bZIP non canonical Hac1/Xbp1 intron: a 74-nucleotide RNA sequence from Nasonia vitripennis. A search with the family's covariance model found it, with a score of 48 bits. Rfam 15.1 lists 1,325 matches to the family in 1,320 species. Rfam classes the family as a small RNA. bZIP intron RNA is a non-canonical intron that was first reported in HAC1 gene in yeast and XBP1 gene in Metazoa.
RNA sequence: GGCUGUACUGUACCAGCGCUGGGAUCAGCAGUAUCCCCCUUAAACCCUCUGCAGCAGGGUGGCACAGUACAGAC
Dot-bracket structure: (.(((((..((.((......(((((.......)))))......(((((.......))))))).))..))))).)